Description:
The family of this 83-nucleotide RNA sequence from Monodelphis domestica is "Small nucleolar RNA SNORD45". The family's consensus secondary structure was predicted with PFOLD. The match comes from Rfam's covariance-model search (68 bits). Rfam 15.1 lists 1,629 matches to the family in 521 species.
RNA sequence: GGUCAAUGAUGUCUUGGCAUGUAUUAGCUGAGCCGCCGCUGAUGCUUCCUACCCGGAAAGCUCUAGAAUUACUCUGAGACCGU
Numbered sequence: 001g002g003u004c005a006a007u008g009a010u011g012u013c014u015u016g017g018c019a020u021g022u023a024u025u026a027g028c029u030g031a032g033c034c035g036c037c038g039c040u041g042a043u044g045c046u047u048c049c050u051a052c053c054c055g056g057a058a059a060g061c062u063c064u065a066g067a068a069u070u071a072c073u074c075u076g077a078g079a080c081c082g083u
Stems, first nucleotide, its partner, number of pairs: 001081004
Dot-bracket structure: ((((.........................................................................))))..